[Rfam]
Shown here is a 120-nucleotide RNA from Ligilactobacillus hayakitensis, a member of the family "FMN riboswitch aptamer (RFN element)". Taxonomically the source falls in Ligilactobacillus hayakitensis (Bacteria, Bacillati, Lactobacillales, Ligilactobacillus). It scores 99 bits against the family's covariance model. The family's consensus secondary structure is taken from published work.
RNA sequence: AGUUAUCUUCAGAGGCAAGGUGAAAAUCCUGACCGGCGGUAAAGUCCGUGAGCUAUUUUAAUAGUUGAACUGGUUAAAUCCCAGUACCGACAGUUAAAGUCUGGAUGAAAGAAGAGUGGG
Numbered sequence: 001a002g003u004u005a006u007c008u009u010c011a012g013a014g015g016c017a018a019g020g021u022g023a024a025a026a027u028c029c030u031g032a033c034c035g036g037c038g039g040u041a042a043a044g045u046c047c048g049u050g051a052g053c054u055a056u057u058u059u060a061a062u063a064g065u066u067g068a069a070c071u072g073g074u075u076a077a078a079u080c081c082c083a084g085u086a087c088c089g090a091c092a093g094u095u096a097a098a099g100u101c102u103g104g105a106u107g108a109a110a111g112a113a114g115a116g117u118g119g120g
Stems, first nucleotide, its partner, number of pairs: 003118001006115005018030003032100002034089002036049004044087002052065003069085005091103003
Dot-bracket structure: ..(..(((((.......(((.......))).[[((((((....[[))))..(((........)))...(((((.......)))))]])).(((.....]]))).......)))))..)..